[Rfam]
RNA: DUF805 RNA
RNA sequence: UUACCUUGGAGUCCAGAAACCAUAUCAAAAACGGGGCGAUACUGAAAAGCCAUACGAGUAGGAAUUAA
Number, nucleotide and partner (000 for none) at each position: 001u000002u000003a000004c000005c000006u000007u022008g021009g020010a000011g000012u000013c000014c000015a000016g000017a000018a000019a000020c009021c008022a007023u000024a000025u000026c000027a000028a000029a000030a000031a000032c000033g000034g000035g051036g050037c049038g000039a000040u000041a000042c062043u061044g000045a000046a000047a000048a000049g037050c036051c035052a000053u000054a000055c000056g000057a000058g000059u000060a000061g043062g042063a000064a000065u000066u000067a000068a000